[Rfam]
The record is an 85-nucleotide RNA from Pseudomonas putida, which matches "Group II catalytic intron D1-D4-1" in Rfam.
Pairs were carried over by alignment from the consensus structure.
RNA sequence: UACCGAGCGUAGAGAGGCGACGGGAUGAGUGUGUAGAAGUCAGCCGAGGCCGUAGUAAGUGGCGAUUAACCGCGCCAUCAAGGGC
Numbered sequence: 001u002a003c004c005g006a007g008c009g010u011a012g013a014g015a016g017g018c019g020a021c022g023g024g025a026u027g028a029g030u031g032u033g034u035a036g037a038a039g040u041c042a043g044c045c046g047a048g049g050c051c052g053u054a055g056u057a058a059g060u061g062g063c064g065a066u067u068a069a070c071c072g073c074g075c076c077a078u079c080a081a082g083g084g085c
Stems, first nucleotide, its partner, number of pairs: 001027002004023001008019003040047002049085003059078006